[Rfam]
RNA sequence: GCCAUAUGAUGUCAUAUAGAUUGCAUUAGCAUUUAAAUUUUUGGUGCAGAGAUGACCUCCUAUCUAUCACCCAAGUCUGAUGGCA
Numbered sequence: 001g002c003c004a005u006a007u008g009a010u011g012u013c014a015u016a017u018a019g020a021u022u023g024c025a026u027u028a029g030c031a032u033u034u035a036a037a038u039u040u041u042u043g044g045u046g047c048a049g050a051g052a053u054g055a056c057c058u059c060c061u062a063u064c065u066a067u068c069a070c071c072c073a074a075g076u077c078u079g080a081u082g083g084c085a
Stems, first nucleotide, its partner, number of pairs: 001084004029047004
Rfam assigns this 85-nucleotide RNA sequence from Ameiurus melas to the family "Small nucleolar RNA SNORD83". The family has 7 seed sequences and 1,393 matches in Rfam 15.1. By type it is a C/D-box small nucleolar RNA. Rfam links the family to the GO terms nucleolus and RNA processing. A reference for the family is Jady and Kiss (2000), "Characterisation of the U83 and U84 small nucleolar RNAs: two novel 2'-O-ribose methylation guide RNAs that lack complementarities to ribosomal RNAs", Nucleic Acids Res.